[Rfam]
RNA sequence: CUACCGCCGAAAUGCCUGCCGACGUUGUCGGCGACAUGCCCAGGUAGUCCUCGGUCUUCAAGGCUACGGCGCGGUUGCCCGCGCUGACCGAUACCCGUUCGCUCCGCAUCCUGGCCGCGAACAAUCACCGCUGCGCGGUGGUGGAUGC
Number, nucleotide and partner (000 for none) at each position: 001c000002u000003a000004c000005c000006g000007c000008c000009g000010a000011a000012a037013u036014g035015c033016c000017u000018g032019c031020c030021g029022a028023c027024g000025u000026u000027g023028u022029c021030g020031g019032c018033g015034a000035c014036a013037u012038g000039c000040c000041c000042a000043g000044g067045u066046a065047g064048u063049c062050c000051u000052c000053g089054g088055u087056c086057u000058u000059c000060a000061a000062g049063g048064c047065u046066a045067c044068g085069g084070c083071g082072c081073g080074g079075u000076u000077g000078c000079c074080c073081g072082c071083g070084c069085u068086g056087a055088c054089c053090g000091a000092u000093a000094c000095c000096c000097g000098u000099u000100c000101g000102c000103u000104c000105c000106g000107c000108a000109u000110c000111c000112u000113g000114g000115c000116c000117g148118c147119g146120a000121a000122c000123a000124a142125u141126c140127a139128c138129c137130g136131c135132u000133g000134c000135g131136c130137g129138g128139u127140g126141g125142u124143g000144g000145a000146u119147g118148c117
This 148-nucleotide RNA sequence from Paraburkholderia xenovorans belongs to the Rfam family "radC RNA".
The source organism's lineage runs through Bacteria, Pseudomonadati, Pseudomonadota, Paraburkholderia and Paraburkholderia xenovorans.
Rfam classes the family as a cis-regulatory element.
It is one of the family's seed sequences.
The base pairs follow the family's consensus structure, which is taken from published work.